This 112-nucleotide RNA from Anaeromicrobium sediminis belongs to the Rfam family "PyrR binding site". Rfam links the family to the GO terms pyrimidine nucleobase transport and pyrimidine nucleobase biosynthetic process. Rfam 15.1 lists 1,498 matches to the family in 930 species. This family represents the PyrR binding site and terminator structure. A search with the family's covariance model found it, with a score of 59 bits.

RNA sequence: AUAGUCUUUAAAUCAAUCCUGUGAGAUUGGCAAGAGUUAUAUGGUAGAACAUAGAAUCUUUCUAUGCUUUUUUAUGCUAUAAACUUCUUGCAGUCCAAGAAGUUUUUUUUAU
Numbered sequence: 001a002u003a004g005u006c007u008u009u010a011a012a013u014c015a016a017u018c019c020u021g022u023g024a025g026a027u028u029g030g031c032a033a034g035a036g037u038u039a040u041a042u043g044g045u046a047g048a049a050c051a052u053a054g055a056a057u058c059u060u061u062c063u064a065u066g067c068u069u070u071u072u073u074a075u076g077c078u079a080u081a082a083a084c085u086u087c088u089u090g091c092a093g094u095c096c097a098a099g100a101a102g103u104u105u106u107u108u109u110u111a112u
Stems, first nucleotide, its partner, number of pairs: 003037001005035004013030006042074003046070003050066006079107001081105010